[Rfam]
RNA: Archaeal large subunit ribosomal RNA, nucleotides 2154 to 2734
RNA sequence: CUUCCAUUGGGAAGCGAAGACCCCGUAGAGUUUUACUGCAGUCUGUCGUUGAAGCUUGGUUAUAGGUAUGCAGUGUAAGUGGGAGAAUUCGAUUAUAAGUCGCCAGGUUUAUAUGAUUCGUUCUUGAGACACCACUUUCUUAUGACUGUGUUUCUAACUUACUUUGUGUGAGGACAUCGGUAGAUGGGCAGUUCGGCUGGGGCGGCACGGGCUUGAAAUGGUAUCAAGCCCGCCCAAAGGUCAACUCAGGUGGGACAGAGAUCCACCGUAGAGUGUAAGGGCAAAAGUUGGCCUGACUGUAUUUCGAUCAGCAAGAAAUUCAGAGGCGAAAGCCGGGCCUAGCGAACCUCAGAGUCCUCCUUGAUGGGGGCCUGAGAUGACAGAAAAACUACCUCGGGGAUAACUGGGUGGUCGCAGGCAAGAGCCCAUAUCGACCCUGCGGCUUGCUACUUCGAUGUCGGUUCUUUCCAUCCUGGGUGUGCAGCAGCACCCAAGGGUGGGGUUGUUCGCCCAUUAAAGGGGAACGUGAGCUGGGUUUAGACCGUCGUGAGACAGGUUGGUUGCUAUCUAAUGGAUGUGUU
Numbered sequence: 001c002u003u004c005c006a007u008u009g010g011g012a013a014g015c016g017a018a019g020a021c022c023c024c025g026u027a028g029a030g031u032u033u034u035a036c037u038g039c040a041g042u043c044u045g046u047c048g049u050u051g052a053a054g055c056u057u058g059g060u061u062a063u064a065g066g067u068a069u070g071c072a073g074u075g076u077a078a079g080u081g082g083g084a085g086a087a088u089u090c091g092a093u094u095a096u097a098a099g100u101c102g103c104c105a106g107g108u109u110u111a112u113a114u115g116a117u118u119c120g121u122u123c124u125u126g127a128g129a130c131a132c133c134a135c136u137u138u139c140u141u142a143u144g145a146c147u148g149u150g151u152u153u154c155u156a157a158c159u160u161a162c163u164u165u166g167u168g169u170g171a172g173g174a175c176a177u178c179g180g181u182a183g184a185u186g187g188g189c190a191g192u193u194c195g196g197c198u199g200g201g202g203c204g205g206c207a208c209g210g211g212c213u214u215g216a217a218a219u220g221g222u223a224u225c226a227a228g229c230c231c232g233c234c235c236a237a238a239g240g241u242c243a244a245c246u247c248a249g250g251u252g253g254g255a256c257a258g259a260g261a262u263c264c265a266c267c268g269u270a271g272a273g274u275g276u277a278a279g280g281g282c283a284a285a286a287g288u289u290g291g292c293c294u295g296a297c298u299g300u301a302u303u304u305c306g307a308u309c310a311g312c313a314a315g316a317a318a319u320u321c322a323g324a325g326g327c328g329a330a331a332g333c334c335g336g337g338c339c340u341a342g343c344g345a346a347c348c349u350c351a352g353a354g355u356c357c358u359c360c361u362u363g364a365u366g367g368g369g370g371c372c373u374g375a376g377a378u379g380a381c382a383g384a385a386a387a388a389c390u391a392c393c394u395c396g397g398g399g400a401u402a403a404c405u406g407g408g409u410g411g412u413c414g415c416a417g418g419c420a421a422g423a424g425c426c427c428a429u430a431u432c433g434a435c436c437c438u439g440c441g442g443c444u445u446g447c448u449a450c451u452u453c454g455a456u457g458u459c460g461g462u463u464c465u466u467u468c469c470a471u472c473c474u475g476g477g478u479g480u481g482c483a484g485c486a487g488c489a490c491c492c493a494a495g496g497g498u499g500g501g502g503u504u505g506u507u508c509g510c511c512c513a514u515u516a517a518a519g520g521g522g523a524a525c526g527u528g529a530g531c532u533g534g535g536u537u538u539a540g541a542c543c544g545u546c547g548u549g550a551g552a553c554a555g556g557u558u559g560g561u562u563g564c565u566a567u568c569u570a571a572u573g574g575a576u577g578u579g580u581u
Stems, first nucleotide, its partner, number of pairs: 001577001003575006010569003014564002022398004027394002029390005035192004042184007051154005057148010068137001078136005085119003097110005158172004195208001196206003209231006234337002240292006246272002249267006273282002297323003301319005325334001327332001348376005354371001356370004407448003411445001412442007422432002459534001460532004464526001465523005472497002476491005500512004540558004544553003